[Rfam]
RNA sequence: UCCCGCAGCCCUCUUGGGCGUUUCCUCCCUAGACUUCGGGCCGCCGCAAGGCGGCCUUUUCUUUUUCCCGGC
Numbered sequence: 001u002c003c004c005g006c007a008g009c010c011c012u013c014u015u016g017g018g019c020g021u022u023u024c025c026u027c028c029c030u031a032g033a034c035u036u037c038g039g040g041c042c043g044c045c046g047c048a049a050g051g052c053g054g055c056c057u058u059u060u061c062u063u064u065u066u067c068c069c070g071g072c
Stems, first nucleotide, its partner, number of pairs: 008019004038057008